[Rfam]
RNA sequence: UUGCACAGUGAACACCCAUGUGUGCUUUGUAGCUCCCUUGGUCAUUUGCCUGUGCUAAAGAAAAGUGUGGUCCUUACCUCUGCAUUGGAAGAGAUUUGUUUCUUCUACAUGUAUUCAGUGGACCAGUACAUUU
Numbered sequence: 001u002u003g004c005a006c007a008g009u010g011a012a013c014a015c016c017c018a019u020g021u022g023u024g025c026u027u028u029g030u031a032g033c034u035c036c037c038u039u040g041g042u043c044a045u046u047u048g049c050c051u052g053u054g055c056u057a058a059a060g061a062a063a064a065g066u067g068u069g070g071u072c073c074u075u076a077c078c079u080c081u082g083c084a085u086u087g088g089a090a091g092a093g094a095u096u097u098g099u100u101u102c103u104u105c106u107a108c109a110u111g112u113a114u115u116c117a118g119u120g121g122a123c124c125a126g127u128a129c130a131u132u133u
Stems, first nucleotide, its partner, number of pairs: 003055006010049001014045001016041003020037001022035001024033003059071001062068001080118003083111003087106007